[Rfam]
RNA sequence: GAGGAUAUGAUGAUCCUUUCCCUAGAUGAUUGGCAAUGAACAUGUUGAGCACUAUUUCUCUUCAGAGAAACCAAGCCAGUAUUCUGAUCCUC
Numbered sequence: 001g002a003g004g005a006u007a008u009g010a011u012g013a014u015c016c017u018u019u020c021c022c023u024a025g026a027u028g029a030u031u032g033g034c035a036a037u038g039a040a041c042a043u044g045u046u047g048a049g050c051a052c053u054a055u056u057u058c059u060c061u062u063c064a065g066a067g068a069a070a071c072c073a074a075g076c077c078a079g080u081a082u083u084c085u086g087a088u089c090c091u092c
Stems, first nucleotide, its partner, number of pairs: 001092005